[Rfam]
RNA: mir-16 microRNA precursor family
Organism: Chelonoidis abingdonii
RNA sequence: CACCACCAGCAGCAGCACAGAAGUAAGGGUGGCAAUACCAUACUAUACCCCCUUACUUCUGUGCUGUUGCUGGUAGUG
Numbered sequence: 001c002a003c004c005a006c007c008a009g010c011a012g013c014a015g016c017a018c019a020g021a022a023g024u025a026a027g028g029g030u031g032g033c034a035a036u037a038c039c040a041u042a043c044u045a046u047a048c049c050c051c052c053u054u055a056c057u058u059c060u061g062u063g064c065u066g067u068u069g070c071u072g073g074u075a076g077u078g
Stems, first nucleotide, its partner, number of pairs: 001078003005074003011068008020058001022057008